[Rfam]
RNA sequence: CCGGUUGAGGAGCGCUGCAACAGGCCACAAGCCUGCCAGGCUCAGCCGGAUGCCUACUCAUACAAACUGCGCUGAAGAGAA
Numbered sequence: 001c002c003g004g005u006u007g008a009g010g011a012g013c014g015c016u017g018c019a020a021c022a023g024g025c026c027a028c029a030a031g032c033c034u035g036c037c038a039g040g041c042u043c044a045g046c047c048g049g050a051u052g053c054c055u056a057c058u059c060a061u062a063c064a065a066a067c068u069g070c071g072c073u074g075a076a077g078a079g080a081a
Base pairs, nucleotide, nucleotide: 002048003047004046005045006044007043008042021035022034023033024032025031
Dot-bracket structure: .(((((((............(((((.....)))))......))))))).................................